[Rfam]
Description
Rfam assigns this 50-nucleotide RNA from Mesorhizobium sp. L-8-10 to the family "Guanidine-II riboswitch aptamer (mini-ykkC)". The base pairs follow the family's consensus structure, which is taken from published work. The organism belongs to Mesorhizobium, within Bacteria. A search with the family's covariance model found it, with a score of 34 bits.

RNA sequence: UCGCAAGGACGACCUUGCAUUCCCCCAAAUAACCGGCAGGGACGACCCGC
Numbered sequence: 001u002c003g004c005a006a007g008g009a010c011g012a013c014c015u016u017g018c019a020u021u022c023c024c025c026c027a028a029a030u031a032a033c034c035g036g037c038a039g040g041g042a043c044g045a046c047c048c049g050c
Stems, first nucleotide, its partner, number of pairs: 003018006036050002039048003